[Rfam]
RNA sequence: GGUCUGUGAUGAGUUUUGGCAUGUUUUAUCCGAGUAUAAAUUUGAAGAUUAACGGUUUAGCUCUAGAAUUAUUAUGAGACCUG
Numbered sequence: 001g002g003u004c005u006g007u008g009a010u011g012a013g014u015u016u017u018g019g020c021a022u023g024u025u026u027u028a029u030c031c032g033a034g035u036a037u038a039a040a041u042u043u044g045a046a047g048a049u050u051a052a053c054g055g056u057u058u059a060g061c062u063c064u065a066g067a068a069u070u071a072u073u074a075u076g077a078g079a080c081c082u083g
Stems, first nucleotide, its partner, number of pairs: 001081004
Dot-bracket structure: ((((.........................................................................))))..
The family of this 83-nucleotide RNA sequence from Chlamydotis macqueenii is "Small nucleolar RNA SNORD45". NCBI's taxonomy places the organism under Eukaryota, Chordata, Sauropsida, Neognathae, Chlamydotis. For this family Rfam cites "Site-specific ribose methylation of preribosomal RNA: a novel function for small nucleolar RNAs" (Kiss-Laszlo et al., Cell, 1996).